Shown here is a 95-nucleotide RNA sequence from Platysternon megacephalum, a member of the family "mir-160 microRNA precursor family".
For this family Rfam cites "Prediction of plant microRNA targets" (Rhoades et al., Cell, 2002).
The family has 7 seed sequences and 1,502 matches in Rfam 15.1.
Pairs were carried over by alignment from the consensus structure, which was predicted with PFOLD.
[Rfam]
RNA sequence: GCUGACCAGACUGCAUGUGUGCCAUCCACAUAGAGCAAUUGAGCCACUGUAGCUCAAUUGCUCUAAGUGGAUGGCACACAUGCAGUCUGGUCAGC
Numbered sequence: 001g002c003u004g005a006c007c008a009g010a011c012u013g014c015a016u017g018u019g020u021g022c023c024a025u026c027c028a029c030a031u032a033g034a035g036c037a038a039u040u041g042a043g044c045c046a047c048u049g050u051a052g053c054u055c056a057a058u059u060g061c062u063c064u065a066a067g068u069g070g071a072u073g074g075c076a077c078a079c080a081u082g083c084a085g086u087c088u089g090g091u092c093a094g095c
Stems, first nucleotide, its partner, number of pairs: 001095006008088007016080009027069003
Dot-bracket structure: ((((((.(((((((.(((((((((..(((.....................................)))..))))))))).))))))).))))))